This 130-nucleotide sequence from Amphritea japonica belongs to the Rfam family "RtT RNA".
The family's RNA type in Rfam is cis-regulatory element.
The organism belongs to Amphritea japonica, within Bacteria.
Gene Ontology term of the family: cellular response to amino acid starvation.
This family represents a bacterial cis-regulatory element known as RtT RNA. The exact function of RtT is unknown although it is thought that it may be involved in changing the cellular response in relation to amino acid starvation.
A reference for the family is Bosl and Kersten (1991), "A novel RNA product of the tyrT operon of Escherichia coli", Nucleic Acids Res.
[Rfam]
RNA sequence: GCGAUUUAUGGGCGGAGGUGGGUGAGAACCGCCGAUGUGGUUCGAGCCGAAGUGAGCCUGCGAACGAAGACAACGUUGCGAUGCUUCUCUCGCAACGGCCCGAAGGGGAAUAAUCCACCUCCCACCACCA
Number, nucleotide and partner (000 for none) at each position: 001g000002c000003g000004a000005u000006u000007u000008a000009u000010g000011g000012g000013c000014g000015g121016a120017g119018g118019u117020g116021g115022g000023u113024g000025a000026g000027a000028a000029c000030c000031g000032c000033c000034g000035a000036u106037g000038u000039g000040g000041u104042u103043c102044g101045a000046g000047c000048c066049g065050a000051a000052g000053u000054g000055a000056g000057c000058c000059u000060g000061c000062g000063a000064a000065c049066g048067a000068a000069g000070a000071c000072a000073a000074c097075g096076u095077u094078g093079c092080g091081a090082u000083g000084c000085u000086u000087c000088u000089c000090u081091c080092g079093c078094a077095a076096c075097g074098g000099c000100c000101c044102g043103a042104a041105g000106g036107g000108g000109a000110a000111u000112a000113a023114u000115c021116c020117a019118c018119c017120u016121c015122c000123c000124a000125c000126c000127a000128c000129c000130a000